This 135-nucleotide sequence from Leucobacter soli belongs to the Rfam family "ALIL pseudoknot". A reference for the family is Mazauric et al. (2008), "Apical loop-internal loop RNA pseudoknots: a new type of stimulator of -1 translational frameshifting in bacteria", J Biol Chem.

RNA sequence: GGCUUUCUUCGCGGCGGAGCUCGACCGCCCCUCACGAUGAGCGAGAAGACCGCGUACAUCGACGCGCAUCGCGCCGAGUUCGGGGUCGAGCCGAUCUGCCGGGCUCUCGAAGACACACCCGCUCAGAUCGCCCCA
Numbered sequence: 001g002g003c004u005u006u007c008u009u010c011g012c013g014g015c016g017g018a019g020c021u022c023g024a025c026c027g028c029c030c031c032u033c034a035c036g037a038u039g040a041g042c043g044a045g046a047a048g049a050c051c052g053c054g055u056a057c058a059u060c061g062a063c064g065c066g067c068a069u070c071g072c073g074c075c076g077a078g079u080u081c082g083g084g085g086u087c088g089a090g091c092c093g094a095u096c097u098g099c100c101g102g103g104c105u106c107u108c109g110a111a112g113a114c115a116c117a118c119c120c121g122c123u124c125a126g127a128u129c130g131c132c133c134c135a
Stems, first nucleotide, its partner, number of pairs: 013029005082134004092130002095127004

The match comes from Rfam's covariance-model search (58 bits). Rfam classes the family as a cis-regulatory element. Gene Ontology term of the family: positive regulation of translational frameshifting.